[Rfam]
RNA: Archaeal small subunit ribosomal RNA, nucleotides 526 to 883
RNA sequence: GGCUUAAAGCGCCCGUAGCCGGCCCGGCAAGUCGCUCCUGAAAUCCCCGGGCUCAACCCGGGGGCCGGGGGCGAUACUGCCGGGCUAGGGGGCGGGAGAGGCCGCCGGUACUCCGGGGGUAGGGGCGAAAUCCUAUAAUCCCCGGAGGACCACCAGUGGCGAAAGCGGGCGGCCAGAACGCGCCCGACGGUGAGGGGCGAAAGCCGGGGGAGCAAAGGGGAUUAGAUACCCCUGUAGUCCCGGCUGUAAACGAUGCGGGCUGGCUGUCGGCCGGGCUUAGGGCCCGGCCGGUGGCGUAGGGAAACCGUUAAGCCCGCCGCCUGGGGAGUACGGCCGCAAGGCUGAAACUUAAAGGAAU
Numbered sequence: 001g002g003c004u005u006a007a008a009g010c011g012c013c014c015g016u017a018g019c020c021g022g023c024c025c026g027g028c029a030a031g032u033c034g035c036u037c038c039u040g041a042a043a044u045c046c047c048c049g050g051g052c053u054c055a056a057c058c059c060g061g062g063g064g065c066c067g068g069g070g071g072c073g074a075u076a077c078u079g080c081c082g083g084g085c086u087a088g089g090g091g092g093c094g095g096g097a098g099a100g101g102c103c104g105c106c107g108g109u110a111c112u113c114c115g116g117g118g119g120u121a122g123g124g125g126c127g128a129a130a131u132c133c134u135a136u137a138a139u140c141c142c143c144g145g146a147g148g149a150c151c152a153c154c155a156g157u158g159g160c161g162a163a164a165g166c167g168g169g170c171g172g173c174c175a176g177a178a179c180g181c182g183c184c185c186g187a188c189g190g191u192g193a194g195g196g197g198c199g200a201a202a203g204c205c206g207g208g209g210g211a212g213c214a215a216a217g218g219g220g221a222u223u224a225g226a227u228a229c230c231c232c233u234g235u236a237g238u239c240c241c242g243g244c245u246g247u248a249a250a251c252g253a254u255g256c257g258g259g260c261u262g263g264c265u266g267u268c269g270g271c272c273g274g275g276c277u278u279a280g281g282g283c284c285c286g287g288c289c290g291g292u293g294g295c296g297u298a299g300g301g302a303a304a305c306c307g308u309u310a311a312g313c314c315c316g317c318c319g320c321c322u323g324g325g326g327a328g329u330a331c332g333g334c335c336g337c338a339a340g341g342c343u344g345a346a347a348c349u350u351a352a353a354g355g356a357a358u
Stems, first nucleotide, its partner, number of pairs: 001321003009318001011198004016192001018191003022085007030078002032074009045063007089185003092181003100174007107151002111147008122133003159166002203244006212238002217233004255317006263295014299306002323350003332343004
Dot-bracket structure: (((.....(.((((.(.(((.(((((((.(((((((((((....(((((((.....)))))))..)))))))))..)))))))))...((((((.....(((((((((..((((((((...(((......)))......))))))))..)).......((....)).)))))))....))).)))...))))..))))....((((((...((...((((.........))))...))))))))..........((((((..((((((((((((((.....))))))))))))))...((....)).....)))))))))).(((......((((....))))....)))........